[Rfam]
RNA sequence: AGUCUCGUAGCUCAGCUGGUUAGAGUACAACACUGAUAAUGUUGGGGUCGGCAGUUCGAGUCUGCCCGGGACUA
Number, nucleotide and partner (000 for none) at each position: 001a073002g072003u071004c070005u069006c068007g067008u000009a000010g026011c025012u024013c023014a000015g000016c000017u000018g000019g000020u000021u000022a000023g013024a012025g011026u010027a000028c044029a043030a042031c041032a040033c000034u000035g000036a000037u000038a000039a000040u032041g031042u030043u029044g028045g000046g000047g000048u000049c000050g066051g065052c064053a063054g062055u000056u000057c000058g000059a000060g000061u000062c054063u053064g052065c051066c050067c007068g006069g005070g004071a003072c002073u001074a000

Shown here is a 74-nucleotide RNA sequence from Flavobacterium arcticum, a member of the family "tRNA". The match comes from Rfam's covariance-model search (65 bits). Rfam links the family to the GO term triplet codon-amino acid adaptor activity. Pairs were carried over by alignment from the consensus structure, which is taken from published work. The source organism's lineage runs through Bacteria, Pseudomonadati, Bacteroidota, Flavobacteriales and Flavobacterium.